[Rfam]
The family of this 103-nucleotide sequence from Dreissena polymorpha is "Insect-specific Flavivirus 3' UTR cis-acting replication element (CRE)".
The source organism's lineage runs through Eukaryota, Spiralia, Autobranchia, Dreissenoidea and Dreissena.
Rfam describes the family as follows. Flavi_ISFV_CRE is a Insect specific Flavivirus family. Flavivirus 3' UTR cis-acting replication element (CRE) plays a crucial role in the virus replication and is thought to be needed for the formation of a 'replication complex', it is composed of a small hairpin (sHP) and a larger structural element (3'SL). It has been shown that mutations in sHP are lethal for viruses. CRE is involved in the 5'-3' UTR interaction of flaviviruses.
It scores 46 bits against the family's covariance model.
RNA sequence: CAUGUUAAAUGAGAAAAAAAAAUUGACAAAGAGCCGUGAAAAAAAAUCCCCACCCUCUGAUAUUGAGAGUGGGGAUUUUUUUUUCAUGGCUCUUUGUCAAUUU
Numbered sequence: 001c002a003u004g005u006u007a008a009a010u011g012a013g014a015a016a017a018a019a020a021a022a023u024u025g026a027c028a029a030a031g032a033g034c035c036g037u038g039a040a041a042a043a044a045a046a047u048c049c050c051c052a053c054c055c056u057c058u059g060a061u062a063u064u065g066a067g068a069g070u071g072g073g074g075a076u077u078u079u080u081u082u083u084u085c086a087u088g089g090c091u092c093u094u095u096g097u098c099a100a101u102u103u
Stems, first nucleotide, its partner, number of pairs: 020103004025098004030093002033090005041082002043079011